[Rfam]
RNA sequence: GGUCUCCUGCUUCAACAGUGCUUGAACGGCAUCC
Dot-bracket structure: (((..((.(.((((((...).)))))))).))).

Rfam assigns this 34-nucleotide RNA sequence from Octodon degus to the family "Iron response element I". It is annotated as a cis-regulatory element. Pairs were carried over by alignment from the consensus structure, which is taken from published work. On this family, see Walden et al., Science 2006: "Structure of dual function iron regulatory protein 1 complexed with ferritin IRE-RNA".